RNA: Ruegeria cis52 sRNA
RNA sequence: UUCCGAAGCGCGUGCUUCAUGACGAUGUUCGGGAACGACACCCCCUUGAGCCGGGCGGUUCGGAUAUAUUGCGCCGUCAUGACUUCGGUCAUCGAUGCCCGCGUCAUCCGGGCGAUAUAGCCCAUCCCGUAGAGCGCGAUCGUCAGGACCGGCAGGGUAAAGUUGGCGAAGGUGAUGUCGUCC
Dot-bracket structure: ...(((..(((((.(((...((......(.((......(.(((...(((..((((((((.(((.....))).))))......(.(((.....))).)))))..)))...))).)......)).)))..).)).))))).)))...(((.(((((.....................))))))))